[Rfam]
RNA sequence: GCCGCUCCCCGGACGGUCGCAAUUUCCGCGCAAGCGGGGGUUGAGGAAAGUCCGGACACCAUAGGGCAGCGCGCCUCAUGAAAGUGGGGGACGGGAACCGCGAGGAACCCGGACGGAAAGUGCAGCAGAAAAUACACCGCCGAUGGCCCGCAAGGGCACAGGUGAGGGUGAAAUGGUGGGGUAAGAGCCCACCGCGCCGAGGGCAACCAAGGCGGCAUGGCAAACCCCGCGCGGUGCAAGACAUAACAGGGGAAGGGCUGCCCGCCCGUUGUUCUCCGGGUAUUAGUCGCACUCCGCGCAAGCGGGGCGCCCGGCUUCGGUCGGGUGAGAGAAAUGACCGUCCAGUCCCGCAAGGGAUGGACAAAAUCCGGCUUACAGGGGAGCGGCACUU
Dot-bracket structure: ((((((((((((((((((.(((((((((......)))))))))....[[[.[[[[[((((...[[[[.((((((((((......)))))(.(((..............)))..)((...((((.............(((((..((((((....)))).)))))..)).......((((((.......))))))(((((..((....))..)))).)...))..)))))))))))))...((((......(((..((((.]]]])))).......))).....)..)))...............................................)))))))........................]]]]]]]].).))))))))))....
Overview
A member of the RNA family "Bacterial RNase P class A" from a Verrucomicrobiales bacterium, 391 nucleotides long. A search with the family's covariance model found it, with a score of 210 bits. Rfam describes the family as follows. Ribonuclease P (RNase P) is a ubiquitous endoribonuclease, found in archaea, bacteria and eukarya as well as chloroplasts and mitochondria. Its family is annotated with ribonuclease P activity, dimeric ribonuclease P complex and tRNA processing in the Gene Ontology. NCBI's taxonomy places the organism under Bacteria, Pseudomonadati, Verrucomicrobiota, Verrucomicrobiia, Verrucomicrobiales.